[Rfam]
RNA sequence: GUUGCAUGGUAAUGAUCAGAGCAGAAGCGCUCGUGUCACAGCCCUGUCAGAUUCUAAGGAACCUGCAAAUUCUGCU
Numbered sequence: 001g002u003u004g005c006a007u008g009g010u011a012a013u014g015a016u017c018a019g020a021g022c023a024g025a026a027g028c029g030c031u032c033g034u035g036u037c038a039c040a041g042c043c044c045u046g047u048c049a050g051a052u053u054c055u056a057a058g059g060a061a062c063c064u065g066c067a068a069a070u071u072c073u074g075c076u
Base pairs, nucleotide, nucleotide: 014043016041020076021075022074023073024072025071026070027039029037048065049064050063052061053060054059
RNA: Mammalian CPEB3 ribozyme